Rfam assigns this 65-nucleotide RNA from Antrostomus carolinensis to the family "Small nucleolar RNA SNORD109A".
The family is grouped with related families in Rfam's "SNORD74 clan".
Humans have two copies of the SNORD109 gene, SNORD109A and SNORD109B.
Gene Ontology terms of the family: RNA processing and nucleolus.
By type it is a C/D-box small nucleolar RNA.
The literature on the family includes a 2001 paper in Hum Mol Genet by Runte et al., "The IC-SNURF-SNRPN transcript serves as a host for multiple small nucleolar RNA species and as an antisense RNA for UBE3A".
A search with the family's covariance model found it, with a score of 36 bits.
[Rfam]
Nucleotides: 065
Base pairs, nucleotide, nucleotide: 001065002064003063004062005061
Number, partner (000 for none) and nucleotide at each position: 001065a002064g003063a004062c005061u006000g007000a008000u009000g010000a011000a012000g013000a014000a015000g016000g017000u018000a019000a020000a021000a022000u023000c024000u025000g026000a027000g028000g029000a030000u031000g032000c033000u034000g035000u036000g037000u038000a039000a040000c041000u042000a043000a044000c045000u046000a047000c048000a049000a050000a051000g052000u053000u054000a055000a056000a057000a058000a059000g060000a061005a062004g063003u064002c065001u